The family of this 97-nucleotide RNA sequence from bacterium 0.1xD8-71 is "skipping-rope RNA".
RNA sequence: AUUAAUUGAGGUGGUAAAUUUCGUAGCUACCACACGCCGUUGGUACUGACAGGGAAAACCCGAGAGAUGCAGGAGAAGGCUACGCCUGCCGGUUGAU
Numbered sequence: 001a002u003u004a005a006u007u008g009a010g011g012u013g014g015u016a017a018a019u020u021u022c023g024u025a026g027c028u029a030c031c032a033c034a035c036g037c038c039g040u041u042g043g044u045a046c047u048g049a050c051a052g053g054g055a056a057a058a059c060c061c062g063a064g065a066g067a068u069g070c071a072g073g074a075g076a077a078g079g080c081u082a083c084g085c086c087u088g089c090c091g092g093u094u095g096a097u
Stems, first nucleotide, its partner, number of pairs: 001097008011033005023083005035064001036044003069089005